Overview
The record is an 82-nucleotide RNA sequence from Vigna radiata, which matches "Small nucleolar RNA Z102/R77" in Rfam. The source organism's lineage runs through Eukaryota, Gunneridae, rosids, Fabales and Vigna radiata. The family is grouped with related families in Rfam's "SNORD44 clan". The match comes from Rfam's covariance-model search (72 bits). A reference for the family is Barneche et al. (2001), "Identification of 66 box C/D snoRNAs in Arabidopsis thaliana: extensive gene duplications generated multiple isoforms predicting new ribosomal RNA 2'-O-methylation sites", J Mol Biol.
RNA sequence: GGAUGGAAUGAUGAUGAUUGAUUUCCCUAUUGGUUUGAUGGCCUGAAUGAUGGCAUUUUGUAUUAGCUCUAUCUGACCAUUC
Numbered sequence: 001g002g003a004u005g006g007a008a009u010g011a012u013g014a015u016g017a018u019u020g021a022u023u024u025c026c027c028u029a030u031u032g033g034u035u036u037g038a039u040g041g042c043c044u045g046a047a048u049g050a051u052g053g054c055a056u057u058u059u060g061u062a063u064u065a066g067c068u069c070u071a072u073c074u075g076a077c078c079a080u081u082c
Stems, first nucleotide, its partner, number of pairs: 002081004037054001042053002